The record is a 64-nucleotide RNA from Amazona aestiva, which matches "Selenocysteine insertion sequence 1" in Rfam. The match comes from Rfam's covariance-model search (37 bits). A reference for the family is Walczak et al. (1996), "A novel RNA structural motif in the selenocysteine insertion element of eukaryotic selenoprotein mRNAs", RNA. The base pairs follow the family's consensus structure, which is taken from published work. NCBI's taxonomy places the organism under Eukaryota, Eumetazoa, Sauropsida, Dinosauria, Amazona.
[Rfam]
RNA sequence: CAGCCCCGAUGAUGGUCUGCCUUCAAGCCAGCUCGCUGGUGAGGCAGACCUGAACCCAGGCGUG
Numbered sequence: 001c002a003g004c005c006c007c008g009a010u011g012a013u014g015g016u017c018u019g020c021c022u023u024c025a026a027g028c029c030a031g032c033u034c035g036c037u038g039g040u041g042a043g044g045c046a047g048a049c050c051u052g053a054a055c056c057c058a059g060g061c062g063u064g
Base pairs, nucleotide, nucleotide: 001064002063005060014050015049016048017047018046019045020044021043022042023041029038030037031036

It is annotated as a cis-regulatory element.